[Rfam]
RNA sequence: UGUAAAUCUGAUAUCGUCGCCAUAGCUUCGAUUGUCGACACAAAGAAUUCAAGCCCGAGGUUAACGCCUUGGGCUUU
Numbered sequence: 001u002g003u004a005a006a007u008c009u010g011a012u013a014u015c016g017u018c019g020c021c022a023u024a025g026c027u028u029c030g031a032u033u034g035u036c037g038a039c040a041c042a043a044a045g046a047a048u049u050c051a052a053g054c055c056c057g058a059g060g061u062u063a064a065c066g067c068c069u070u071g072g073g074c075u076u077u
Base pairs, nucleotide, nucleotide: 016039017038018037019036021034051076052075053074054073055072056071057070058069059068060067
RNA: isrJ Hfq binding RNA